[Rfam]
RNA sequence: GCCGAGUGCCUGUCACACUUCGGUGGCCUUGGCUAGUGAAUGCACGACUCCCUCCGAGUGCUGGGAUCAAAUGCCACGUUUACGGUUUGCCCAUAAGAGAGUCUUAGUGCUGGGCCGAAAACUCCGUGUAGAUGGAGUUUUUGCCCAAGCGUUAACGCGAGGGUACUGCCUCAGGCCGGCAACGGAACAGGGUUACCUCCUGCUAGGACUGGUCUAUGGACUACGAACUGGAGUGGUACCUAGUAACGAAGAGUAGGAUCGUGUGGACACUAGCCCU
Numbered sequence: 001g002c003c004g005a006g007u008g009c010c011u012g013u014c015a016c017a018c019u020u021c022g023g024u025g026g027c028c029u030u031g032g033c034u035a036g037u038g039a040a041u042g043c044a045c046g047a048c049u050c051c052c053u054c055c056g057a058g059u060g061c062u063g064g065g066a067u068c069a070a071a072u073g074c075c076a077c078g079u080u081u082a083c084g085g086u087u088u089g090c091c092c093a094u095a096a097g098a099g100a101g102u103c104u105u106a107g108u109g110c111u112g113g114g115c116c117g118a119a120a121a122c123u124c125c126g127u128g129u130a131g132a133u134g135g136a137g138u139u140u141u142u143g144c145c146c147a148a149g150c151g152u153u154a155a156c157g158c159g160a161g162g163g164u165a166c167u168g169c170c171u172c173a174g175g176c177c178g179g180c181a182a183c184g185g186a187a188c189a190g191g192g193u194u195a196c197c198u199c200c201u202g203c204u205a206g207g208a209c210u211g212g213u214c215u216a217u218g219g220a221c222u223a224c225g226a227a228c229u230g231g232a233g234u235g236g237u238a239c240c241u242a243g244u245a246a247c248g249a250a251g252a253g254u255a256g257g258a259u260c261g262u263g264u265g266g267a268c269a270c271u272a273g274c275c276c277u
Stems, first nucleotide, its partner, number of pairs: 016025003031275008041265007048256002050253001052251002055248002059245007073237005079231001083230007091219002096215003100210009109150003113146002116143012159199004168193004176185003
This 277-nucleotide RNA from Aureococcus anophagefferens belongs to the Rfam family "Metazoan signal recognition particle RNA". The signal recognition particle (SRP) is a universally conserved ribonucleoprotein. It is involved in the co-translational targeting of proteins to membranes. The eukaryotic SRP consists of a 300-nucleotide 7S RNA and six proteins: SRPs 72, 68, 54, 19, 14, and 9. Clan: SRP clan. The literature on the family includes a 2002 paper in Curr Opin Struct Biol by Wild et al., "Towards the structure of the mammalian signal recognition particle". Rfam classes the family as a non-coding RNA gene.